The record is a 133-nucleotide RNA from Rhinopomastus cyanomelas, which matches "Small nucleolar RNA SNORA69" in Rfam. The base pairs follow the family's consensus structure, which was predicted with PFOLD. Its family is annotated with RNA processing and nucleolus in the Gene Ontology. The match comes from Rfam's covariance-model search (77 bits). Rfam 15.1 lists 808 matches to the family in 584 species. From the family's description: U69 is a member of the H/ACA class of small nucleolar RNAs (snoRNAs) which act as guides in the the modification of uridines to pseudouridines.

[Rfam]
RNA sequence: AAAGCAGGGCUGCAAUUGCAGGGCUUCAUUCUGUGGGAGCACUGCCAUUUUCCUGCUGAGAGUAACCCUGUUGGCACUGUCUUUGGUUUCACCCAUUUGGUGGAGAAACUGUUUGUUGUUGACAUUGACAACU
Numbered sequence: 001a002a003a004g005c006a007g008g009g010c011u012g013c014a015a016u017u018g019c020a021g022g023g024c025u026u027c028a029u030u031c032u033g034u035g036g037g038a039g040c041a042c043u044g045c046c047a048u049u050u051u052c053c054u055g056c057u058g059a060g061a062g063u064a065a066c067c068c069u070g071u072u073g074g075c076a077c078u079g080u081c082u083u084u085g086g087u088u089u090c091a092c093c094c095a096u097u098u099g100g101u102g103g104a105g106a107a108a109c110u111g112u113u114u115g116u117u118g119u120u121g122a123c124a125u126u127g128a129c130a131a132c133u
Stems, first nucleotide, its partner, number of pairs: 003057006019044003023040005069124008084111007092103002